This 92-nucleotide sequence from Nyctereutes procyonoides belongs to the Rfam family "mir-8799 microRNA precursor family". Its family is annotated with miRNA-mediated post-transcriptional gene silencing and RISC complex in the Gene Ontology. The base pairs follow the family's consensus structure, which was predicted with RNAalifold. The organism belongs to Nyctereutes, within Eukaryota. The match comes from Rfam's covariance-model search (70 bits).
RNA sequence: GGGGGGCAGGCAGGAUCCUGGGCUAUGUCCCCAGCGCCCUGUGCUCCCCGGCCUGCGCUGUUGGAUUUGCGCUCCCUGCCGCGCAGCCCCGU
Numbered sequence: 001g002g003g004g005g006g007c008a009g010g011c012a013g014g015a016u017c018c019u020g021g022g023c024u025a026u027g028u029c030c031c032c033a034g035c036g037c038c039c040u041g042u043g044c045u046c047c048c049c050g051g052c053c054u055g056c057g058c059u060g061u062u063g064g065a066u067u068u069g070c071g072c073u074c075c076c077u078g079c080c081g082c083g084c085a086g087c088c089c090c091g092u
Stems, first nucleotide, its partner, number of pairs: 001092001003090004010084002013080002017078001020075003024071001026069002028065002031063001032060006041053001043052003